[Rfam]
Shown here is a 60-nucleotide RNA sequence from Cellulomonas denverensis, a member of the family "Actino-pnp RNA". A search with the family's covariance model found it, with a score of 58 bits. The family's RNA type in Rfam is cis-regulatory element.

RNA sequence: UCCGGUCCUCGGUAGUGGGUCACGGAGCACACGCUCCGUGGACCUCGAUCGAAGACCGCC
Numbered sequence: 001u002c003c004g005g006u007c008c009u010c011g012g013u014a015g016u017g018g019g020u021c022a023c024g025g026a027g028c029a030c031a032c033g034c035u036c037c038g039u040g041g042a043c044c045u046c047g048a049u050c051g052a053a054g055a056c057c058g059c060c
Stems, first nucleotide, its partner, number of pairs: 003058005009052005017044002020041009